The family of this 293-nucleotide sequence from Candidatus Methanomassiliicoccus intestinalis is "Archaeal RNase P". For this family Rfam cites "Ribonuclease P: unity and diversity in a tRNA processing ribozyme" (Frank and Pace, Annu Rev Biochem, 1998). The family's RNA type in Rfam is ribozyme. Ribonuclease P (RNase P) is a ubiquitous endoribonuclease, found in archaea, bacteria and eukarya as well as chloroplasts and mitochondria. Rfam links the family to the GO terms tRNA processing, ribonuclease P activity and multimeric ribonuclease P complex.
[Rfam]
RNA sequence: AGGAGGAAGAGGACGGCCGACGGUAGGGCUUAGACCCAGCUGAGGAAAUUCUCCUCUCCAUGAGAAAAGUGGACCGAAUAAUAGGUACGGCGAGAGCCGUGGCAAGGGCACAGAAACGACACAGUUCCAUUUAAGGAUGAACUGCUAGGCAGGGACGUUUGUGGAAAUUUGGUGAAACGGCGACCCCCCACUGGAGCAAGUCCAAACAGACCAGGAUGACAAUCUCAGGACUGGCGGGUAGGAUGCGUAGUUGAAUGCCGUCUGAAACAGAAAGGAGAUUACUACUUCGACCU
Numbered sequence: 001a002g003g004a005g006g007a008a009g010a011g012g013a014c015g016g017c018c019g020a021c022g023g024u025a026g027g028g029c030u031u032a033g034a035c036c037c038a039g040c041u042g043a044g045g046a047a048a049u050u051c052u053c054c055u056c057u058c059c060a061u062g063a064g065a066a067a068a069g070u071g072g073a074c075c076g077a078a079u080a081a082u083a084g085g086u087a088c089g090g091c092g093a094g095a096g097c098c099g100u101g102g103c104a105a106g107g108g109c110a111c112a113g114a115a116a117c118g119a120c121a122c123a124g125u126u127c128c129a130u131u132u133a134a135g136g137a138u139g140a141a142c143u144g145c146u147a148g149g150c151a152g153g154g155a156c157g158u159u160u161g162u163g164g165a166a167a168u169u170u171g172g173u174g175a176a177a178c179g180g181c182g183a184c185c186c187c188c189c190a191c192u193g194g195a196g197c198a199a200g201u202c203c204a205a206a207c208a209g210a211c212c213a214g215g216a217u218g219a220c221a222a223u224c225u226c227a228g229g230a231c232u233g234g235c236g237g238g239u240a241g242g243a244u245g246c247g248u249a250g251u252u253g254a255a256u257g258c259c260g261u262c263u264g265a266a267a268c269a270g271a272a273a274g275g276a277g278a279u280u281a282c283u284a285c286u287u288c289g290a291c292c293u
Stems, first nucleotide, its partner, number of pairs: 001293003006288004010283002012262006021042004047280003051277005056196004061227005068192005073086003077082001087100005101187002108181002122171003125166006142152002200244004211234004